[Rfam]
Actinobacteria sRNA Ms_IGR-5: a 214-nucleotide RNA from Streptomyces phaeofaciens. NCBI's taxonomy places the organism under Bacteria, Bacillati, Actinomycetes, Kitasatosporales, Streptomyces. The pairing is the family consensus, mapped onto this sequence. Rfam classes the family as a small RNA.
RNA sequence: ACACGGUGAAAGGAGGUGAUCCGGUAAUGCAGGAAACCCGGACGCGUGAGGUGGCUGCGGGCUAGCGGCUCGCCACCACACUCUGUGCGGUGCCGGACCAGCGCGUGAACGACGCGUGCAGCCGGCCCAAUCCCAGCAGUCACCCGACCCGCGAGUCGCCGGUACGUCCGGCCGGACCCUCCUCAGGGAGGACCCGACUCGCGGGUCGUCUGCG
Numbered sequence: 001a002c003a004c005g006g007u008g009a010a011a012g013g014a015g016g017u018g019a020u021c022c023g024g025u026a027a028u029g030c031a032g033g034a035a036a037c038c039c040g041g042a043c044g045c046g047u048g049a050g051g052u053g054g055c056u057g058c059g060g061g062c063u064a065g066c067g068g069c070u071c072g073c074c075a076c077c078a079c080a081c082u083c084u085g086u087g088c089g090g091u092g093c094c095g096g097a098c099c100a101g102c103g104c105g106u107g108a109a110c111g112a113c114g115c116g117u118g119c120a121g122c123c124g125g126c127c128c129a130a131u132c133c134c135a136g137c138a139g140u141c142a143c144c145c146g147a148c149c150c151g152c153g154a155g156u157c158g159c160c161g162g163u164a165c166g167u168c169c170g171g172c173c174g175g176a177c178c179c180u181c182c183u184c185a186g187g188g189a190g191g192a193c194c195c196g197a198c199u200c201g202c203g204g205g206u207c208g209u210c211u212g213c214g
Base pairs, nucleotide, nucleotide: 016058017057018056020054060127061126062125063124065122066121068119069118071116073114145208146207147206148205149204150203151202152201153200154199155198156197157196159175160174161173162172163171